Shown here is a 156-nucleotide sequence from Eragrostis curvula, a member of the family "MIR2118 microRNA precursor family". The source organism's lineage runs through Eukaryota, Streptophytina, Spermatophyta, Eragrostidinae and Eragrostis. For this family Rfam cites "Characterization and expression profiles of miRNAs in rice seeds" (Xue et al., Nucleic Acids Res, 2009).

RNA sequence: GCCAGUAAGAGGAAGAAAUAGAGGGCCUAAGAGCUGUGGGAAUGGGAACAUGAAUGAAAGCCUUCCCUCCUCCAGCAAUUGAGAUGUUUUUUUUUUUGGUUGGUGUUUUACCUCAUUCCUACUGUUCUUAGGAGCUCCUUCCUCUUCCAUUUGGCU
Numbered sequence: 001g002c003c004a005g006u007a008a009g010a011g012g013a014a015g016a017a018a019u020a021g022a023g024g025g026c027c028u029a030a031g032a033g034c035u036g037u038g039g040g041a042a043u044g045g046g047a048a049c050a051u052g053a054a055u056g057a058a059a060g061c062c063u064u065c066c067c068u069c070c071u072c073c074a075g076c077a078a079u080u081g082a083g084a085u086g087u088u089u090u091u092u093u094u095u096u097u098g099g100u101u102g103g104u105g106u107u108u109u110a111c112c113u114c115a116u117u118c119c120u121a122c123u124g125u126u127c128u129u130a131g132g133a134g135c136u137c138c139u140u141c142c143u144c145u146u147c148c149a150u151u152u153g154g155c156u
Base pairs, nucleotide, nucleotide: 009147010146011145012144013143015141016140017139021137022136023135026132027131028130029129030128031127032126033125034124037121038120039119040118041117042116043115044114045113046112047108049105050104051103053101